[Rfam]
RNA sequence: CGUGGGCGUCGCGACUGGCGUUGAGGUGGGUACCCACCGGGGAGCGACCGACACGGCAUCGACCGCACGCCUGGGCCGGGCCU
Numbered sequence: 001c002g003u004g005g006g007c008g009u010c011g012c013g014a015c016u017g018g019c020g021u022u023g024a025g026g027u028g029g030g031u032a033c034c035c036a037c038c039g040g041g042g043a044g045c046g047a048c049c050g051a052c053a054c055g056g057c058a059u060c061g062a063c064c065g066c067a068c069g070c071c072u073g074g075g076c077c078g079g080g081c082c083u
Base pairs, nucleotide, nucleotide: 003053004052008048009047010046011045012044015041016040017071018070019069020068021067026037027036028035029034060078061077063075064074
RNA: ZMP/ZTP riboswitch aptamer (pfl RNA motif)
Organism: Microbacterium aurantiacum